[Rfam]
RNA sequence: GGCCUCCCUCUGUGGGGCAAUCAAUUGCAGGGCUCCGCAAUCGAUGGCUCUGUAGAGGGAGGCC
Numbered sequence: 001g002g003c004c005u006c007c008c009u010c011u012g013u014g015g016g017g018c019a020a021u022c023a024a025u026u027g028c029a030g031g032g033c034u035c036c037g038c039a040a041u042c043g044a045u046g047g048c049u050c051u052g053u054a055g056a057g058g059g060a061g062g063c064c
Stems, first nucleotide, its partner, number of pairs: 001064018020045003024041005030035001
A member of the RNA family "mir-9242 microRNA precursor family" from Myotis myotis, 64 nucleotides long.
Its family is annotated with miRNA-mediated post-transcriptional gene silencing and RISC complex in the Gene Ontology.
The source organism's lineage runs through Eukaryota, Eumetazoa, Vertebrata, Gnathostomata and Myotis.